The record is a 151-nucleotide sequence from Paracoccus zhejiangensis, which matches "FMN riboswitch aptamer (RFN element)" in Rfam. The base pairs follow the family's consensus structure, which is taken from published work.
RNA sequence: CGUCACUCUUGGGGCGGGGCGAAAUUCCCCACCGGCGGUAAGCGGCCUGCCCGCAAAGCCCGCGAGCGCCCCGGCCGCACAAGGCCGGGGGUCAGCAGAUCUGGUGCAACUCCAGGGCCGACGGUCACAGUCCGGAUGAGAGAGAGCGGCA
Numbered sequence: 001c002g003u004c005a006c007u008c009u010u011g012g013g014g015c016g017g018g019g020c021g022a023a024a025u026u027c028c029c030c031a032c033c034g035g036c037g038g039u040a041a042g043c044g045g046c047c048u049g050c051c052c053g054c055a056a057a058g059c060c061c062g063c064g065a066g067c068g069c070c071c072c073g074g075c076c077g078c079a080c081a082a083g084g085c086c087g088g089g090g091g092u093c094a095g096c097a098g099a100u101c102u103g104g105u106g107c108a109a110c111u112c113c114a115g116g117g118c119c120g121a122c123g124g125u126c127a128c129a130g131u132c133c134g135g136a137u138g139a140g141a142g143a144g145a146g147c148g149g150c151a
Stems, first nucleotide, its partner, number of pairs: 003149002006146005017029003031131002033120002035063004058118002066096002100116005122134003